[Rfam]
RNA: RT-18 RNA
RNA sequence: CACCCCUUGGUGCAGAUAAGCCAUCAGGACACGGUUUAGUACACUCCCGCAACCUGCGGGGGCGAUGGAAAGACAGUGAGGCUAAAAGGAG
Numbered sequence: 001c002a003c004c005c006c007u008u009g010g011u012g013c014a015g016a017u018a019a020g021c022c023a024u025c026a027g028g029a030c031a032c033g034g035u036u037u038a039g040u041a042c043a044c045u046c047c048c049g050c051a052a053c054c055u056g057c058g059g060g061g062g063c064g065a066u067g068g069a070a071a072g073a074c075a076g077u078g079a080g081g082c083u084a085a086a087a088g089g090a091g
Base pairs, nucleotide, nucleotide: 001012002011003010004009019083020082021081022080030078031077032076034074035073036072042067043066044062045061046060047059048058049057050056